[Rfam]
RNA sequence: UAAAAGUCCCGGACAACAACCAUGAGCCAGACCGUGUCUACACGGAAUGGUUCAUGGAUAUUGGACGGGCUGACCUGUAUGAACAAGGAGAGCAAUCGCUCGGAUUGUGAAUACAGAUGACGAUGUCGAGAGUGCAUAGCACACAGACAUCAACUUUUC
Numbered sequence: 001u002a003a004a005a006g007u008c009c010c011g012g013a014c015a016a017c018a019a020c021c022a023u024g025a026g027c028c029a030g031a032c033c034g035u036g037u038c039u040a041c042a043c044g045g046a047a048u049g050g051u052u053c054a055u056g057g058a059u060a061u062u063g064g065a066c067g068g069g070c071u072g073a074c075c076u077g078u079a080u081g082a083a084c085a086a087g088g089a090g091a092g093c094a095a096u097c098g099c100u101c102g103g104a105u106u107g108u109g110a111a112u113a114c115a116g117a118u119g120a121c122g123a124u125g126u127c128g129a130g131a132g133u134g135c136a137u138a139g140c141a142c143a144c145a146g147a148c149a150u151c152a153a154c155u156u157u158u159c
Base pairs, nucleotide, nucleotide: 002158003157004156005155006154007153008069009068010067011066015062016061018059020057021056022055023054024053025052026051027050028049029048032045033044034043035042036041073118075116076115077114078113079112080111083108084107085106086105090101091100092099093098122151123150124149125148126147127146132142133141134140135139
Clostridiales-1 RNA: a 159-nucleotide sequence from Clostridiales bacterium CHKCI001.
The match comes from Rfam's covariance-model search (89 bits).
It is annotated as a small RNA.